[Rfam]
RNA: RNase MRP
RNA sequence: GUUCGUGCUGAAGGCCUGUUUCCUAGGCUACAAACGGGGGACUAGUUCCUUAUUCUAUGCCUAGGGGAAAGUCCCCGGACCAAUGGCAGAGAGUGCCACGUGCGCGCGCACGGAGACUUCCCCUGCUUCUCACGUUAAAGUCCGCCAAGAAGCGACCCCGUGUAGGGCGAGCUGAGCGGCGUGUUGCAGGGGCGUCAUCAGUCAGCUCUUACAGUUACGCAGGCAGUGCGCUUCUGCGCGCUAACCACACGGGGCUCAUUCUCAGUGCGGC
Number, nucleotide and partner (000 for none) at each position: 001g000002u000003u270004c269005g268006u267007g266008c265009u264010g263011a262012a000013g000014g224015c223016c222017u221018g220019u219020u000021u000022c065023c064024u063025a062026g061027g060028c059029u000030a000031c000032a000033a000034a000035c000036g000037g051038g050039g049040g048041a047042c000043u000044a000045g000046u000047u041048c040049c039050u038051u037052a000053u000054u000055c000056u000057a000058u000059g028060c027061c026062u025063a024064g023065g022066g000067g000068a000069a000070a256071g255072u000073c254074c253075c252076c251077g000078g000079a000080c000081c000082a000083a000084u000085g097086g096087c095088a094089g000090a000091g000092a000093g000094u088095g087096c086097c085098a000099c112100g111101u110102g109103c108104g000105c000106g000107c000108g103109c102110a101111c100112g099113g000114a000115g196116a195117c194118u000119u000120c000121c191122c190123c189124u188125g187126c186127u000128u000129c000130u000131c183132a182133c181134g000135u000136u000137a000138a000139a000140g000141u000142c179143c178144g177145c176146c000147a000148a000149g000150a000151a000152g000153c000154g000155a000156c000157c000158c000159c000160g000161u000162g000163u000164a000165g000166g000167g000168c000169g000170a000171g000172c000173u000174g000175a000176g145177c144178g143179g142180c000181g133182u132183g131184u000185u000186g126187c125188a124189g123190g122191g121192g000193c000194g117195u116196c115197a000198u000199c000200a000201g000202u000203c000204a000205g000206c000207u000208c000209u000210u000211a000212c000213a000214g000215u000216u000217a000218c000219g019220c018221a017222g016223g015224c014225a000226g241227u240228g239229c238230g237231c236232u000233u000234c000235u000236g231237c230238g229239c228240g227241c226242u000243a000244a000245c000246c000247a000248c000249a000250c000251g076252g075253g074254g073255c071256u070257c000258a000259u000260u000261c000262u011263c010264a009265g008266u007267g006268c005269g004270g003271c000